[Rfam]
This 270-nucleotide RNA from Crypturellus undulatus belongs to the Rfam family "Small Cajal body specific RNA 6". U88 is small Cajal body specific RNA (scaRNA). scaRNAs are a novel class of small nuclear RNAs which localise to the Cajal bodies. U88 is found associated with both fibrillarin and Gar1p and co-localises with coilin in Cajal bodies. It is annotated as a small Cajal body RNA. The literature on the family includes a 2002 paper in EMBO J by Darzacq et al., "Cajal body-specific small nuclear RNAs: a novel class of 2'-O-methylation and pseudouridylation guide RNAs". Rfam links the family to the GO terms RNA processing and nucleolus.
RNA sequence: GGUCGAUGAUGACAAGUAAAAGGUCUGAGGGCACAGGGGAAUUGCACUCCCUGACCCCUUGGCUCCCAGCAGUCCCUUUUCGGUCACACUGCAGCAGAGCUGUGAUGGAGGGAGGGACUGCUGACAGCUUGGGAUUUAUUCAGUCCCAGUUCUCCAGAGUGAAGGGAGUUGUGGCACUGAAUGUCGUCCAACAGAACUGCUUCAGAGGAGCUCGGGGUGCUGGGGUGUCUUCAUUUAUUGUGUGUGAUCUAAAGUUUUCAAGCUGAGACC
Numbered sequence: 001g002g003u004c005g006a007u008g009a010u011g012a013c014a015a016g017u018a019a020a021a022g023g024u025c026u027g028a029g030g031g032c033a034c035a036g037g038g039g040a041a042u043u044g045c046a047c048u049c050c051c052u053g054a055c056c057c058c059u060u061g062g063c064u065c066c067c068a069g070c071a072g073u074c075c076c077u078u079u080u081c082g083g084u085c086a087c088a089c090u091g092c093a094g095c096a097g098a099g100c101u102g103u104g105a106u107g108g109a110g111g112g113a114g115g116g117a118c119u120g121c122u123g124a125c126a127g128c129u130u131g132g133g134a135u136u137u138a139u140u141c142a143g144u145c146c147c148a149g150u151u152c153u154c155c156a157g158a159g160u161g162a163a164g165g166g167a168g169u170u171g172u173g174g175c176a177c178u179g180a181a182u183g184u185c186g187u188c189c190a191a192c193a194g195a196a197c198u199g200c201u202u203c204a205g206a207g208g209a210g211c212u213c214g215g216g217g218u219g220c221u222g223g224g225g226u227g228u229c230u231u232c233a234u235u236u237a238u239u240g241u242g243u244g245u246g247a248u249c250u251a252a253a254g255u256u257u258u259c260a261a262g263c264u265g266a267g268a269c270c
Stems, first nucleotide, its partner, number of pairs: 001270004035250003045227006063210004067123007080109002083106006089099001131189001133188003137183002146174003152168004